[Rfam]
Rfam assigns this 154-nucleotide RNA sequence from Paenibacillus sp. N3.4 to the family "c-di-AMP riboswitch aptamer (ydaO/yuaA leader)". Its family is annotated with regulation of gene expression and cyclic-di-AMP binding in the Gene Ontology.
RNA sequence: AGCUAUUUAAAGCCGAAUCCGGUGCACAGACAAAGCGCCGGUACGGGGGACGAUUUACAUGGGGUGAAUAUUUGCUUUUUAAUGAAAGCAGACUAGGGAGAACCUUCUUCCCGAACCCGUCAACUAACCUCGAAGGCUCAAUGAAGGAGGAUCA
Numbered sequence: 001a002g003c004u005a006u007u008u009a010a011a012g013c014c015g016a017a018u019c020c021g022g023u024g025c026a027c028a029g030a031c032a033a034a035g036c037g038c039c040g041g042u043a044c045g046g047g048g049g050a051c052g053a054u055u056u057a058c059a060u061g062g063g064g065u066g067a068a069u070a071u072u073u074g075c076u077u078u079u080u081a082a083u084g085a086a087a088g089c090a091g092a093c094u095a096g097g098g099a100g101a102a103c104c105u106u107c108u109u110c111c112c113g114a115a116c117c118c119g120u121c122a123a124c125u126a127a128c129c130u131c132g133a134a135g136g137c138u139c140a141a142u143g144a145a146g147g148a149g150g151a152u153c154a
Stems, first nucleotide, its partner, number of pairs: 011138004019041007044132005051061002062118003071092007096112004